RNA sequence: UUUCACAGUUACUGAUCUGCAGUUGUUAUUGUGGUGGCAGUUGUGGCAUUCCACUGUGGAUAAGAAACUGUUAACGCGAUCAGACACCUCUUUCUUAACAAAACAGAAAACAGGCAUAUGUGUGACAGAACCAA
Dot-bracket structure: ..((((..........(((((((((............))))))))).........))))..............(((((........(((.(((((.........)))))..)))....)))))...........

Description:
The record is a 134-nucleotide RNA sequence from Carlito syrichta, which matches "Small nucleolar RNA SNORA41" in Rfam. The source organism's lineage runs through Eukaryota, Bilateria, Theria, Boreoeutheria and Carlito. Rfam classes the family as an H/ACA-box small nucleolar RNA. Rfam describes the family as follows. ACA41 is a member of the H/ACA class of snoRNA that guide the sites of modification of uridines to pseudouridines.